The record is an 89-nucleotide RNA from Durio zibethinus, which matches "MIR164 microRNA precursor family" in Rfam. A search with the family's covariance model found it, with a score of 71 bits. A reference for the family is Reinhart et al. (2002), "MicroRNAs in plants", Genes Dev. Rfam links the family to the GO terms miRNA-mediated post-transcriptional gene silencing and RISC complex.
RNA sequence: UGGAGAAGGGGAGCACGUGCAAGAAGGCAAGGUAUAUAUUGAGAAGCCAAAAGGGAUUGGCGCUCUUGCACGUGCCCUGCUUCUCCAAC
Numbered sequence: 001u002g003g004a005g006a007a008g009g010g011g012a013g014c015a016c017g018u019g020c021a022a023g024a025a026g027g028c029a030a031g032g033u034a035u036a037u038a039u040u041g042a043g044a045a046g047c048c049a050a051a052a053g054g055g056a057u058u059g060g061c062g063c064u065c066u067u068g069c070a071c072g073u074g075c076c077c078u079g080c081u082u083c084u085c086c087a088a089c
Stems, first nucleotide, its partner, number of pairs: 001087008010078002013075012